Shown here is a 102-nucleotide RNA from Anoxynatronum buryatiense, a member of the family "Glycine riboswitch aptamer". It scores 38 bits against the family's covariance model.
RNA sequence: CUCUGGAAAGUUCCCCGGGGAACGCCGAAGGGGCAAGGUGAAAACAGUGGCGAAUGAUGCCGAACACCGUUUUCUCAGAAACUCUCAGGCCUGAUAACAGAG
Dot-bracket structure: (((((.....((((....)))).(((((..(((....(.....................................).....))))).))).......)))))